RNA sequence: GUAUUCUUGCGCGCAUGAACCGCAUUCAGACCGCGCUCCGACGUCGCCGCUCGCUGCCCGCAUGGGAAGCCCUUGGCUCGUCGCGGAUGUGCGCCUUGCAGUACCCACGCUAGGCGCGACACCGGUCAAACAGCGAAAGCCACGGGAUCCCGUGGCUUUUUU
Numbered sequence: 001g002u003a004u005u006c007u008u009g010c011g012c013g014c015a016u017g018a019a020c021c022g023c024a025u026u027c028a029g030a031c032c033g034c035g036c037u038c039c040g041a042c043g044u045c046g047c048c049g050c051u052c053g054c055u056g057c058c059c060g061c062a063u064g065g066g067a068a069g070c071c072c073u074u075g076g077c078u079c080g081u082c083g084c085g086g087a088u089g090u091g092c093g094c095c096u097u098g099c100a101g102u103a104c105c106c107a108c109g110c111u112a113g114g115c116g117c118g119a120c121a122c123c124g125g126u127c128a129a130a131c132a133g134c135g136a137a138a139g140c141c142a143c144g145g146g147a148u149c150c151c152g153u154g155g156c157u158u159u160u161u162u
Stems, first nucleotide, its partner, number of pairs: 005132001007130002011094004019090002031086003039080003043077003046073001049070002054065001136159010
RNA: Burkholderia sRNA 7
Organism: Trinickia symbiotica